[Rfam]
RNA sequence: UAAGCAGAAAUUGUGUAUCAGAAUUGUGCUUAAUCUACUGCACUAGACGGAAUAGAGUUCUCUGCAACAUGGAUUUGAAAAGAUUGGCAGUUGUGUUUCAUUACUGCUGAAUCUCAACAAUCAGUCAUGAAU
Numbered sequence: 001u002a003a004g005c006a007g008a009a010a011u012u013g014u015g016u017a018u019c020a021g022a023a024u025u026g027u028g029c030u031u032a033a034u035c036u037a038c039u040g041c042a043c044u045a046g047a048c049g050g051a052a053u054a055g056a057g058u059u060c061u062c063u064g065c066a067a068c069a070u071g072g073a074u075u076u077g078a079a080a081a082g083a084u085u086g087g088c089a090g091u092u093g094u095g096u097u098u099c100a101u102u103a104c105u106g107c108u109g110a111a112u113c114u115c116a117a118c119a120a121u122c123a124g125u126c127a128u129g130a131a132u
Stems, first nucleotide, its partner, number of pairs: 004065005010059001013043005077126001083125005090118004
RNA: small nucleolar RNA snoR135
Organism: Kingdonia uniflora